[Rfam]
RNA sequence: CUUCAGCGAGCCGAGCAGCAGCGGCCGGUCGGCCGGCCGGUUCUUCCCGUACGUCGCGAGGAGUGCCUGCGCCUC
Numbered sequence: 001c002u003u004c005a006g007c008g009a010g011c012c013g014a015g016c017a018g019c020a021g022c023g024g025c026c027g028g029u030c031g032g033c034c035g036g037c038c039g040g041u042u043c044u045u046c047c048c049g050u051a052c053g054u055c056g057c058g059a060g061g062a063g064u065g066c067c068u069g070c071g072c073c074u075c
Stems, first nucleotide, its partner, number of pairs: 015025002032070002038065002043060003047056001049054001
Shown here is a 75-nucleotide RNA sequence from Streptomyces vietnamensis, a member of the family "ASpks TB sRNA". The organism belongs to Streptomyces, within Bacteria. The family's consensus secondary structure is taken from published work.